RNA sequence: ACGUUGCGUUGAUGUGAGAGGUUGCCGACACACCCGGCCCCUUUGCCAUGGGACCUGUGCGGGUUAUUCUCACGGAGUAUGUCCGAUUAAAAAAUUGGGCGA
Numbered sequence: 001a002c003g004u005u006g007c008g009u010u011g012a013u014g015u016g017a018g019a020g021g022u023u024g025c026c027g028a029c030a031c032a033c034c035c036g037g038c039c040c041c042u043u044u045g046c047c048a049u050g051g052g053a054c055c056u057g058u059g060c061g062g063g064u065u066a067u068u069c070u071c072a073c074g075g076a077g078u079a080u081g082u083c084c085g086a087u088u089a090a091a092a093a094a095u096u097g098g099g100c101g102a
Stems, first nucleotide, its partner, number of pairs: 014073003018069003021065001025062003080101008
Dot-bracket structure: .............(((.((((...(((................................)))..).))).)))......((((((((......)))))))).
A member of the RNA family "S10-Clostridia ribosomal protein leader" from Paenibacillus sp. MY03, 102 nucleotides long. It is annotated as a cis-regulatory leader.